[Rfam]
RNA sequence: UGUUGGACGGACCUGGAGGGUCCGUUUUCAAGGAACUUAAGGCUUCUGGGGUGGGAAGUC
Numbered sequence: 001u002g003u004u005g006g007a008c009g010g011a012c013c014u015g016g017a018g019g020g021u022c023c024g025u026u027u028u029c030a031a032g033g034a035a036c037u038u039a040a041g042g043c044u045u046c047u048g049g050g051g052u053g054g055g056a057a058g059u060c
Stems, first nucleotide, its partner, number of pairs: 003031003006026006041060007
Background
Rfam assigns this 60-nucleotide RNA from Pelotomaculum schinkii to the family "Na+ riboswitch aptamer (DUF1646)". It scores 50 bits against the family's covariance model.